Record summary
The record is a 206-nucleotide RNA sequence from Populus tomentosa, which matches "MIR159 microRNA precursor family" in Rfam.

RNA sequence: AAUCGAGGGAGAGAGCUUCUUUCAGCCCACUCGUGGAUAGGACAAAGGGGUUGAACUAGCUGCCGACUCAUUCAUUCAAGCACUAGUAGAAAAGAAGGCGAACGGUGAUUCUUUUGCUACUGUGAUUGUGUGAAUGAUGCGGGAGAUAGUUUUCCAUCCUCUCCUCUUCUGUGCUUGGACUGAAGGGAGCUCCUUCCUUCUCUUGC
Numbered sequence: 001a002a003u004c005g006a007g008g009g010a011g012a013g014a015g016c017u018u019c020u021u022u023c024a025g026c027c028c029a030c031u032c033g034u035g036g037a038u039a040g041g042a043c044a045a046a047g048g049g050g051u052u053g054a055a056c057u058a059g060c061u062g063c064c065g066a067c068u069c070a071u072u073c074a075u076u077c078a079a080g081c082a083c084u085a086g087u088a089g090a091a092a093a094g095a096a097g098g099c100g101a102a103c104g105g106u107g108a109u110u111c112u113u114u115u116g117c118u119a120c121u122g123u124g125a126u127u128g129u130g131u132g133a134a135u136g137a138u139g140c141g142g143g144a145g146a147u148a149g150u151u152u153u154c155c156a157u158c159c160u161c162u163c164c165u166c167u168u169c170u171g172u173g174c175u176u177g178g179a180c181u182g183a184a185g186g187g188a189g190c191u192c193c194u195u196c197c198u199u200c201u202c203u204u205g206c
Base pairs, nucleotide, nucleotide: 013192014191015190016189017188018187019186020185023182024181025180027178028177029176036169060145061144063142064141065140069136070135071134072133077128078127079126
Taxonomically the source falls in Populus (Eukaryota, Viridiplantae, Embryophyta, Salicaceae).